Overview: U5 spliceosomal RNA: a 119-nucleotide sequence from Carnegiea gigantea. Rfam classes the family as a spliceosomal small nuclear RNA. A reference for the family is Zwieb (1997), "The uRNA database", Nucleic Acids Res. Lineage of the source: Eukaryota > Pentapetalae > Caryophyllales > Cactineae > Carnegiea. The match comes from Rfam's covariance-model search (51 bits).
RNA sequence: GACCAUGGAGUGAGCCCAGAGCUAACUAUUUCUUCGCCUUCUACUAAAGAAUACCGUGUGCUUGGUGCAUCACGUGACAUACGUUAAUUUUUGGAAGGAGAUCCCUUUAUAAGGGCCUU
Numbered sequence: 001g002a003c004c005a006u007g008g009a010g011u012g013a014g015c016c017c018a019g020a021g022c023u024a025a026c027u028a029u030u031u032c033u034u035c036g037c038c039u040u041c042u043a044c045u046a047a048a049g050a051a052u053a054c055c056g057u058g059u060g061c062u063u064g065g066u067g068c069a070u071c072a073c074g075u076g077a078c079a080u081a082c083g084u085u086a087a088u089u090u091u092u093g094g095a096a097g098g099a100g101a102u103c104c105c106u107u108u109a110u111a112a113g114g115g116c117c118u119u
Stems, first nucleotide, its partner, number of pairs: 004076003009066001011064005017058002027053005033047002095119001099118002102115003